A member of the RNA family "tRNA" from Gonium pectorale, 73 nucleotides long.

RNA sequence: GGUCCUAUGGCUUAAUGGAUAAAGCGCCGGUCUACGGAACCGGAGAUUCCAGAUUCGAUCCCUGGUAAGAUCG
Numbered sequence: 001g002g003u004c005c006u007a008u009g010g011c012u013u014a015a016u017g018g019a020u021a022a023a024g025c026g027c028c029g030g031u032c033u034a035c036g037g038a039a040c041c042g043g044a045g046a047u048u049c050c051a052g053a054u055u056c057g058a059u060c061c062c063u064g065g066u067a068a069g070a071u072c073g
Stems, first nucleotide, its partner, number of pairs: 001072004006067002010025004027043005049065004

The source organism's lineage runs through Eukaryota, Chlorophyceae, Chlamydomonadales, Volvocaceae and Gonium.